tRNA: a 74-nucleotide RNA from Insulibacter thermoxylanivorax. A search with the family's covariance model found it, with a score of 65 bits. The organism belongs to Insulibacter, within Bacteria.

RNA sequence: CGGGAAGUGGCUCAGCUUGGUAGAGCACCACGUUCGGGACGUGGGGGUCGCAGGUUCGAAUCCUGUCUUCCCGA
Numbered sequence: 001c002g003g004g005a006a007g008u009g010g011c012u013c014a015g016c017u018u019g020g021u022a023g024a025g026c027a028c029c030a031c032g033u034u035c036g037g038g039a040c041g042u043g044g045g046g047g048u049c050g051c052a053g054g055u056u057c058g059a060a061u062c063c064u065g066u067c068u069u070c071c072c073g074a
Base pairs, nucleotide, nucleotide: 001073002072003071004070005069006068007067010026011025012024013023028044029043030042031041032040050066051065052064053063054062